This 87-nucleotide RNA from Triticum aestivum belongs to the Rfam family "MIR1120/MIR1122 microRNA precursor family". The family has 6 seed sequences and 44,765 matches in Rfam 15.1. It scores 91 bits against the family's covariance model. A reference for the family is Yao et al. (2007), "Cloning and characterization of microRNAs from wheat (Triticum aestivum L.)", Genome Biol. Gene Ontology terms of the family: RISC complex and miRNA-mediated post-transcriptional gene silencing.

RNA sequence: GUACUUCCUCUGUCCCAAAAUAUAAGAACGUUUUUGACACUAGUGUAGUUUCAGAAACGUUCUUAUAUUAUGGGAUUGAGGGAGUAU
Numbered sequence: 001g002u003a004c005u006u007c008c009u010c011u012g013u014c015c016c017a018a019a020a021u022a023u024a025a026g027a028a029c030g031u032u033u034u035u036g037a038c039a040c041u042a043g044u045g046u047a048g049u050u051u052c053a054g055a056a057a058c059g060u061u062c063u064u065a066u067a068u069u070a071u072g073g074g075a076u077u078g079a080g081g082g083a084g085u086a087u
Stems, first nucleotide, its partner, number of pairs: 003085003007081004013075005019069019039049003